Background: A member of the RNA family "Alphaproteobacterial sRNA ar9" from Pseudovibrio axinellae, 171 nucleotides long. The match comes from Rfam's covariance-model search (56 bits). The source organism's lineage runs through Bacteria, Pseudomonadati, Alphaproteobacteria, Hyphomicrobiales and Pseudovibrio.
[Rfam]
RNA sequence: ACAACAAAAACAACACCUUUAAGCGGUGUUGCUAAGUAUCGCGAUCUUUAGUCUUGGGAGGAACGUUCUCGGGCGCCCGUUUGGUUGCAGCCGGCACUCUACGCAAGUGCAAAGAGAACAUUUAGACGCGGAACUCGUAUUUAUAGCAAGGCCUCGGCCUUGCUUUUUUUU
Numbered sequence: 001a002c003a004a005c006a007a008a009a010a011c012a013a014c015a016c017c018u019u020u021a022a023g024c025g026g027u028g029u030u031g032c033u034a035a036g037u038a039u040c041g042c043g044a045u046c047u048u049u050a051g052u053c054u055u056g057g058g059a060g061g062a063a064c065g066u067u068c069u070c071g072g073g074c075g076c077c078c079g080u081u082u083g084g085u086u087g088c089a090g091c092c093g094g095c096a097c098u099c100u101a102c103g104c105a106a107g108u109g110c111a112a113a114g115a116g117a118a119c120a121u122u123u124a125g126a127c128g129c130g131g132a133a134c135u136c137g138u139a140u141u142u143a144u145a146g147c148a149a150g151g152c153c154u155c156g157g158c159c160u161u162g163c164u165u166u167u168u169u170u171u
Stems, first nucleotide, its partner, number of pairs: 003171002006168001011031006040130004052062003065119005072092003075088002094110005145164008